This 45-nucleotide RNA from Mycolicibacterium llatzerense belongs to the Rfam family "Mycobacterium sRNA Ms_AS-5". It scores 50 bits against the family's covariance model. The pairing is the family consensus, mapped onto this sequence. The organism belongs to Mycobacterium (subgen. Mycolicibacterium), within Bacteria.
RNA sequence: GUCGGGGUACUGACCGGUGAACAGUGUCGGCCGGCUGGGUGCACA
Numbered sequence: 001g002u003c004g005g006g007g008u009a010c011u012g013a014c015c016g017g018u019g020a021a022c023a024g025u026g027u028c029g030g031c032c033g034g035c036u037g038g039g040u041g042c043a044c045a
Base pairs, nucleotide, nucleotide: 012032014030015029016028017027018026